Description: The record is a 147-nucleotide RNA sequence from Pseudaminobacter salicylatoxidans, which matches "speF leader" in Rfam. Rfam links the family to the GO term regulation of gene expression. A search with the family's covariance model found it, with a score of 90 bits. It is annotated as a cis-regulatory leader. The organism belongs to Pseudaminobacter, within Bacteria. A reference for the family is Corbino et al. (2005), "Evidence for a second class of S-adenosylmethionine riboswitches and other regulatory RNA motifs in alpha-proteobacteria", Genome Biol.
[Rfam]
RNA sequence: UGCCGAUCGUCCAUAGAUCGGGGUUACUGAAGAGGCACACCUUCAUUGCCGGCAGUGCGGAACGGGUCUCCCAAUCCAAGCCAAGGCAGACAAAGCGAGCAUAUGCCGCAAGGCGCAUGCUCAUCGCCGCGUGAAAGCGUUUUUUCG
Dot-bracket structure: (.((((((.......)))))).)..........((((.........))))......(((.....................(.......).........((.......))...............)))....................
Numbered sequence: 001u002g003c004c005g006a007u008c009g010u011c012c013a014u015a016g017a018u019c020g021g022g023g024u025u026a027c028u029g030a031a032g033a034g035g036c037a038c039a040c041c042u043u044c045a046u047u048g049c050c051g052g053c054a055g056u057g058c059g060g061a062a063c064g065g066g067u068c069u070c071c072c073a074a075u076c077c078a079a080g081c082c083a084a085g086g087c088a089g090a091c092a093a094a095g096c097g098a099g100c101a102u103a104u105g106c107c108g109c110a111a112g113g114c115g116c117a118u119g120c121u122c123a124u125c126g127c128c129g130c131g132u133g134a135a136a137g138c139g140u141u142u143u144u145u146c147g
Stems, first nucleotide, its partner, number of pairs: 001023001003021006034050004057127003081089001099109002
This family is a putative regulatory RNA structure that is found upstream of the speF gene encoding ornithine decarboxylase in Agrobacterium tumefaciens and other alpha-proteobacteria. Pairs were carried over by alignment from the consensus structure, which was predicted with RNAalifold.